mir-3492 microRNA precursor family: a 78-nucleotide RNA from Schistosoma japonicum. The base pairs follow the family's consensus structure, which was predicted with RNAalifold. Rfam 15.1 lists 21,496 matches to the family in 13 species. Its family is annotated with RISC complex and miRNA-mediated post-transcriptional gene silencing in the Gene Ontology.
[Rfam]
RNA sequence: GGCCUUAUGUAUACGAGCCGAGAUUUCAGCAGACACCAGACUACCAGGAAUGAUGAGACUACCGAGAUAAGUGAAGCG
Number, nucleotide and partner (000 for none) at each position: 001g000002g077003c076004c000005u074006u073007a000008u071009g000010u069011a068012u067013a000014c000015g000016a000017g062018c000019c000020g000021a060022g059023a000024u058025u057026u056027c055028a054029g000030c052031a000032g000033a000034c000035a000036c000037c000038a000039g000040a000041c000042u000043a000044c000045c000046a000047g000048g000049a000050a000051u000052g030053a000054u028055g027056a026057g025058a024059c022060u021061a000062c017063c000064g000065a000066g000067a012068u011069a010070a000071g008072u000073g006074a005075a000076g003077c002078g000